RNA sequence: CCGCCCGUCCUAGGGGAGUAGCCGUUCCGCGAAUAUGACGGAAGCGCGUGUCAACACACUUGGUCGUCAGAUCAUGGCACGAGCGGCAUCGAUCAGCAUCCUUUGCUGAUCCGUUUGGCAAGACCUUCGACUCGAUAUCCGCUGGCUUGGGGCUGGGUGGGUGUCGGGUUGAGGUUUAUGAUCCAGCCCCUGAA
Number, nucleotide and partner (000 for none) at each position: 001c000002c000003g000004c000005c000006c000007g000008u000009c000010c000011u000012a000013g000014g000015g000016g000017a000018g000019u000020a000021g000022c000023c000024g000025u000026u042027c041028c040029g000030c000031g000032a000033a000034u000035a000036u000037g000038a000039c000040g028041g027042a026043a000044g084045c083046g000047c081048g080049u079050g078051u077052c076053a075054a000055c000056a000057c000058a000059c000060u000061u074062g073063g072064u071065c070066g000067u000068c000069a000070g065071a064072u063073c062074a061075u053076g052077g051078c050079a049080c048081g047082a000083g045084c044085g000086g000087c000088a000089u193090c192091g191092a000093u000094c000095a000096g000097c000098a000099u000100c000101c000102u000103u000104u000105g000106c000107u000108g000109a000110u000111c000112c000113g000114u000115u000116u000117g000118g000119c000120a000121a000122g000123a000124c000125c000126u000127u000128c000129g000130a000131c000132u000133c000134g000135a000136u000137a000138u000139c000140c000141g000142c000143u000144g000145g000146c000147u000148u000149g000150g000151g000152g000153c000154u000155g000156g000157g000158u000159g000160g000161g000162u000163g000164u000165c000166g000167g000168g000169u000170u000171g000172a000173g000174g000175u000176u000177u000178a000179u000180g000181a000182u000183c000184c000185a000186g000187c000188c000189c000190c000191u091192g090193a089194a000
The family of this 194-nucleotide RNA sequence from Chitinivorax tropicus is "Manganese Mn2+ riboswitch aptamer (yybP-ykoY)". A reference for the family is Argaman et al. (2001), "Novel small RNA-encoding genes in the intergenic regions of Escherichia coli", Curr Biol. The pairing is the family consensus, mapped onto this sequence. From the family's description: This RNA was originally discovered in E. coli during a large scale screen and was named SraF. The family was later found to exist upstream of related families of protein genes in many bacteria, including the the yybP and ykoK genes in B. subtilis. The specific functions of these proteins are unknown, but this structured RNA element may be involved in their genetic regulation as a riboswitch. Gene Ontology term of the family: manganese ion binding. Taxonomically the source falls in Chitinivorax (Bacteria, Pseudomonadati, Pseudomonadota, Betaproteobacteria).